Selenocysteine transfer RNA: a 91-nucleotide RNA from Haloechinothrix halophila. Taxonomically the source falls in Haloechinothrix halophila (Bacteria, Actinomycetota, Actinomycetes, Haloechinothrix). The match comes from Rfam's covariance-model search (81 bits).
[Rfam]
RNA sequence: GGAGGCGUGUCCGGUCUGGUGAUCGGCCCGGUCUUCAAAACCGGUGAACGGCAGUUCCUGUCGUUGGCGGGUUCGAUUCCCGUCCGCCUCC
Numbered sequence: 001g002g003a004g005g006c007g008u009g010u011c012c013g014g015u016c017u018g019g020u021g022a023u024c025g026g027c028c029c030g031g032u033c034u035u036c037a038a039a040a041c042c043g044g045u046g047a048a049c050g051g052c053a054g055u056u057c058c059u060g061u062c063g064u065u066g067g068c069g070g071g072u073u074c075g076a077u078u079c080c081c082g083u084c085c086g087c088c089u090c091c
Stems, first nucleotide, its partner, number of pairs: 001091007009083001011026006028044005047065005068082004